[Rfam]
RNA: drz-agam-2-2 ribozyme
RNA sequence: AAGAGUUUUGGGGGUUCAAAUGGGGUAGUGAUGCGUAAAAUAUGACGCUGCAUCCUGUUAGCGUCACUAGCCUCUCCUACUCAACUCCAACUCUUACCUCCACGCGGUGAACUCUGGUAACCUGAGCAACUCUGUGGAAGAUUGUGGUCACCAACCCCAGUGGGACGCAGAGUCAGGGCAAACGAGAGUGGA
Dot-bracket structure: ..........(((((((.....((((((.((.((...................................))...))))))))...[[[[.[[[[.(((.[[....))))))))))]]...(((((.....(((........(((.......))).(((...)))....))).)))))......].]]]]]]]